[Rfam]
RNA: TPP riboswitch aptamer (THI element)
RNA sequence: GAACCCACCUCGGGGGGCCUUCACCGGCUGAGAUGCGCAUGCGGACCCGUUGAACCUGAACCGGUUAAGACCGGCGGAGGGAAGGUGCGAUGUCUCAUG
Number, nucleotide and partner (000 for none) at each position: 001g000002a000003a000004c000005c000006c087007a086008c085009c084010u083011c049012g048013g047014g046015g000016g000017g028018c027019c026020u000021u000022c000023a000024c000025c000026g019027g018028c017029u000030g000031a000032g000033a000034u000035g042036c041037g000038c000039a000040u000041g036042c035043g000044g000045a000046c014047c013048c012049g011050u000051u000052g000053a000054a000055c080056c079057u078058g000059a000060a000061c074062c073063g072064g071065u000066u000067a000068a000069g000070a000071c064072c063073g062074g061075c000076g000077g000078a057079g056080g055081g000082a000083a010084g009085g008086u007087g006088c000089g000090a000091u000092g000093u000094c000095u000096c000097a000098u000099g000